[Rfam]
Plastid-psbA-3 3UTR RNA: a 55-nucleotide sequence from Gossypium australe. For this family Rfam cites "Retrograde signaling in plants: A critical review focusing on the GUN pathway and beyond" (Richter et al., Plant Commun, 2023). About the family: Plastid psbA-3 is a non-coding RNA (ncRNA) present in plastids. It was identified in inverted repeat sequences in the 3 prime untranslate region (3UTR) of photosystem II quinone-binding protein (psbA). A search with the family's covariance model found it, with a score of 58 bits. The base pairs follow the family's consensus structure, which was predicted with LocARNA.

RNA sequence: AAAGGAGCAAUAACCAUUUCUUGUUCUAGCAAGUGUUGGUAUUGCUCCUUUAUUU
Numbered sequence: 001a002a003a004g005g006a007g008c009a010a011u012a013a014c015c016a017u018u019u020c021u022u023g024u025u026c027u028a029g030c031a032a033g034u035g036u037u038g039g040u041a042u043u044g045c046u047c048c049u050u051u052a053u054u055u
Stems, first nucleotide, its partner, number of pairs: 001051012014038001020033004